[Rfam]
RNA sequence: GGAUAUGUGAGAGGAGCUGCUUUUAGUACGAGAGGACCGAAGUGGACGAACCUCUGGUGUACCAGUUAUCCUGCCAAGGGUACGUGCUGGGUAGCUAUGUUCGGAAGGGAUAACCGCUGAAGGCAUCUAAGUGGGAAGCCCGCCUCAAGAUUACAUAUCCCUGAAGGUUGACCUUCCUGAAGACUCCUUGCACACUACAAGGUCGAUAGGCUGGAGGUCUACGUACCGUAAGGUAUUAAGCCGACCAGUACUAAUAAGUCGUGAG
Numbered sequence: 001g002g003a004u005a006u007g008u009g010a011g012a013g014g015a016g017c018u019g020c021u022u023u024u025a026g027u028a029c030g031a032g033a034g035g036a037c038c039g040a041a042g043u044g045g046a047c048g049a050a051c052c053u054c055u056g057g058u059g060u061a062c063c064a065g066u067u068a069u070c071c072u073g074c075c076a077a078g079g080g081u082a083c084g085u086g087c088u089g090g091g092u093a094g095c096u097a098u099g100u101u102c103g104g105a106a107g108g109g110a111u112a113a114c115c116g117c118u119g120a121a122g123g124c125a126u127c128u129a130a131g132u133g134g135g136a137a138g139c140c141c142g143c144c145u146c147a148a149g150a151u152u153a154c155a156u157a158u159c160c161c162u163g164a165a166g167g168u169u170g171a172c173c174u175u176c177c178u179g180a181a182g183a184c185u186c187c188u189u190g191c192a193c194a195c196u197a198c199a200a201g202g203u204c205g206a207u208a209g210g211c212u213g214g215a216g217g218u219c220u221a222c223g224u225a226c227c228g229u230a231a232g233g234u235a236u237u238a239a240g241c242c243g244a245c246c247a248g249u250a251c252u253a254a255u256a257a258g259u260c261g262u263g264a265g
Stems, first nucleotide, its partner, number of pairs: 001160008011146004017045007047103005055097003062090005067082006107141003114134005163177001165175003179262001182260004186202005207253003210249005216242002223236005

The record is a 265-nucleotide part of an RNA from Treponema pallidum, which matches "Bacterial large subunit ribosomal RNA" in Rfam. Rfam's curators put it in the seed alignment.